[Rfam]
eL15-Euryarchaeota ribosomal protein leader: a 56-nucleotide RNA from Haloplanus natans. NCBI's taxonomy places the organism under Archaea, Methanobacteriati, Methanobacteriota, Haloferacaceae, Haloplanus natans. For this family Rfam cites "Discovery of 20 novel ribosomal leader candidates in bacteria and archaea" (Eckert and Weinberg, BMC Microbiol, 2020).

RNA sequence: CCCGACUCGUCGGGACGACAUGUAGCCCGCCGACUUCGGCGGCGCCGAAUCGCAAG
Numbered sequence: 001c002c003c004g005a006c007u008c009g010u011c012g013g014g015a016c017g018a019c020a021u022g023u024a025g026c027c028c029g030c031c032g033a034c035u036u037c038g039g040c041g042g043c044g045c046c047g048a049a050u051c052g053c054a055a056g
Stems, first nucleotide, its partner, number of pairs: 001014005016052003025045002027042005